[Rfam]
RNA sequence: CCGGUUCCGGUUCACGCUCCCGCACCGCACCCGUGGGCAAGACGGCAGCGACCCGGCGACA
Numbered sequence: 001c002c003g004g005u006u007c008c009g010g011u012u013c014a015c016g017c018u019c020c021c022g023c024a025c026c027g028c029a030c031c032c033g034u035g036g037g038c039a040a041g042a043c044g045g046c047a048g049c050g051a052c053c054c055g056g057c058g059a060c061a
Stems, first nucleotide, its partner, number of pairs: 004060002007056004015050004020045003
L31-Actinobacteria ribosomal protein leader: a 61-nucleotide sequence from Nocardioides dokdonensis. The family's RNA type in Rfam is cis-regulatory leader.